[Rfam]
RNA sequence: CAGUCUCUAAGGCUGACUCAGUGCCUUAAGAGGCUAACACAGAAGGGUAAAGCAACUCUCCAUAAAACCCAGAGAAGAGAUGGUAAAACUCCUCUUUGGAUCCUGUCUGGAGUCACAGCU
Numbered sequence: 001c002a003g004u005c006u007c008u009a010a011g012g013c014u015g016a017c018u019c020a021g022u023g024c025c026u027u028a029a030g031a032g033g034c035u036a037a038c039a040c041a042g043a044a045g046g047g048u049a050a051a052g053c054a055a056c057u058c059u060c061c062a063u064a065a066a067a068c069c070c071a072g073a074g075a076a077g078a079g080a081u082g083g084u085a086a087a088a089c090u091c092c093u094c095u096u097u098g099g100a101u102c103c104u105g106u107c108u109g110g111a112g113u114c115a116c117a118g119c120u
Stems, first nucleotide, its partner, number of pairs: 001046001004043003012038001014036002017033001019030001058112005069099007077091003081088001

Description: This 120-nucleotide RNA from Myotis myotis belongs to the Rfam family "Small nucleolar RNA SNORA26". The family has 76 seed sequences and 1,943 matches in Rfam 15.1. Gene Ontology terms of the family: RNA processing and nucleolus.